This 82-nucleotide RNA from Pseudomonas amygdali belongs to the Rfam family "Proteo-phage-1 RNA". Pairs were carried over by alignment from the consensus structure, which is taken from published work.
RNA sequence: CCGCAGCCUAAGCGGCCCGAAAGGGGAAUUAGGACAGGGAUCAGUCGUUGAGUGCCCUGAUUCGGAACUAACCUCGACAGCU
Numbered sequence: 001c002c003g004c005a006g007c008c009u010a011a012g013c014g015g016c017c018c019g020a021a022a023g024g025g026g027a028a029u030u031a032g033g034a035c036a037g038g039g040a041u042c043a044g045u046c047g048u049u050g051a052g053u054g055c056c057c058u059g060a061u062u063c064g065g066a067a068c069u070a071a072c073c074u075c076g077a078c079a080g081c082u
Stems, first nucleotide, its partner, number of pairs: 001015004007033005016025003035059005044078004
It is one of the family's seed sequences.
NCBI's taxonomy places the organism under Bacteria, Pseudomonadati, Pseudomonadales, Pseudomonadaceae, Pseudomonas amygdali pv. aesculi.